[Rfam]
Rfam assigns this 75-nucleotide sequence from Quercus lobata to the family "Plastid-ycf2 5UTR RNA".
RNA sequence: GUGCAUCCAAUAGGAAUUGAACCUACAAAUUUGCCAAUUAUGAGUUGGGCGCCAUUCAGGCUCAACCAUGGAUGC
Numbered sequence: 001g002u003g004c005a006u007c008c009a010a011u012a013g014g015a016a017u018u019g020a021a022c023c024u025a026c027a028a029a030u031u032u033g034c035c036a037a038u039u040a041u042g043a044g045u046u047g048g049g050c051g052c053c054a055u056u057c058a059g060g061c062u063c064a065a066c067c068a069u070g071g072a073u074g075c
Stems, first nucleotide, its partner, number of pairs: 003075006011025004040069003044066007
Rfam describes the family as follows. Plastid ycf2 is a non-coding RNA (ncRNA) recognised in plastids. It was found in the prime untranslated region (5UTR) of ycf2 genes, it presents a tRNA-like motif which suggests it can be involved in mRNA maturation, particularly involved in defining the precise 5' end of the transcript.
The family has 204 seed sequences and 3,521 matches in Rfam 15.1.
Rfam classes the family as a cis-regulatory element.
For this family Rfam cites "Retrograde signaling in plants: A critical review focusing on the GUN pathway and beyond" (Richter et al., Plant Commun, 2023).
The family's consensus secondary structure was predicted with LocARNA.